A member of the RNA family "c-di-GMP-I-GGC riboswitch aptamer" from Sediminibacillus albus, 106 nucleotides long. Gene Ontology term of the family: cyclic-di-GMP binding. Lineage of the source: Bacteria > Bacillota > Caryophanales > Bacillaceae > Sediminibacillus.
[Rfam]
RNA sequence: CUUGAUAAAGGCAAACUAGCUGAAAAGCUAGGACGCAAAGCCUAGGGUCUAAGAUUGUUGCUGGGUAUUUUUUCUCAGUUCGGUUAUGAUCGCCUGGCUGCCAAAG
Number, nucleotide and partner (000 for none) at each position: 001c106002u000003u103004g102005a000006u000007a000008a000009a000010g000011g036012c035013a000014a000015a000016c031017u030018a029019g028020c027021u026022g000023a000024a000025a000026a021027g020028c019029u018030a017031g016032g000033a000034c092035g012036c011037a000038a000039a099040g098041c097042c096043u000044a095045g094046g093047g090048u089049c088050u000051a000052a000053g000054a000055u000056u000057g000058u000059u000060g000061c000062u000063g000064g000065g000066u000067a000068u000069u000070u000071u000072u000073u000074c000075u000076c000077a000078g000079u000080u000081c000082g000083g000084u000085u000086a000087u000088g049089a048090u047091c000092g034093c046094c045095u044096g042097g041098c040099u039100g000101c000102c004103a003104a000105a000106g001